The family of this 172-nucleotide RNA sequence is "U1 spliceosomal RNA". Rfam 15.1 lists 40,184 matches to the family in 1,499 species. Rfam links the family to the GO terms pre-mRNA 5'-splice site binding, U1 snRNP and mRNA 5'-splice site recognition. The sequence is in the family's curated seed alignment.
RNA sequence: AUACUUACCUGACGGUGAAGCAAACCUGGUCAACAUGGGGCUUCUUCCAGGGUGAGGCUUUUGCAUUGCACUUCGCCUGGGCUGACUCUGGGUUGACUGCGAUUACCGCUAACGUCGGUAACUCGACCGUACACUUUCUGGCUGUGGGGGCCUGCGUUGGCGCUCGCCCCUU
Numbered sequence: 001a002u003a004c005u006u007a008c009c010u011g012a013c014g015g016u017g018a019a020g021c022a023a024a025c026c027u028g029g030u031c032a033a034c035a036u037g038g039g040g041c042u043u044c045u046u047c048c049a050g051g052g053u054g055a056g057g058c059u060u061u062u063g064c065a066u067u068g069c070a071c072u073u074c075g076c077c078u079g080g081g082c083u084g085a086c087u088c089u090g091g092g093u094u095g096a097c098u099g100c101g102a103u104u105a106c107c108g109c110u111a112a113c114g115u116c117g118g119u120a121a122c123u124c125g126a127c128c129g130u131a132c133a134c135u136u137u138c139u140g141g142c143u144g145u146g147g148g149g150g151c152c153u154g155c156g157u158u159g160g161c162g163c164u165c166g167c168c169c170c171u172u
Stems, first nucleotide, its partner, number of pairs: 012130004017047004023042001025040003049098002054086001056083003060080002063076002100125003103121003107117002146171006154163003